Record summary: Rfam assigns this 120-nucleotide sequence to the family "DUF3800-I RNA". Rfam classes the family as a small RNA. Rfam describes the family as follows. Actinobacteria, Firmicutes, Fusobacteria, Proteobacteria (1 example), Tenericutes (2 examples).
RNA sequence: UAUAAUUGCAGGUAGAGAUACGCUGUAUACUCGUGUACCCGAAUUAACGUUUAAGCGAUAUGUAAUAUCGUCGAGCACGAGGGAUUGGCCGCCUAUUGGGCGGCCUUUCUUUUUUAGCGA
Numbered sequence: 001u002a003u004a005a006u007u008g009c010a011g012g013u014a015g016a017g018a019u020a021c022g023c024u025g026u027a028u029a030c031u032c033g034u035g036u037a038c039c040c041g042a043a044u045u046a047a048c049g050u051u052u053a054a055g056c057g058a059u060a061u062g063u064a065a066u067a068u069c070g071u072c073g074a075g076c077a078c079g080a081g082g083g084a085u086u087g088g089c090c091g092c093c094u095a096u097u098g099g100g101c102g103g104c105c106u107u108u109c110u111u112u113u114u115u116a117g118c119g120a
Stems, first nucleotide, its partner, number of pairs: 007027005012021003030081006038075001040073002042051003055071006082110003087105007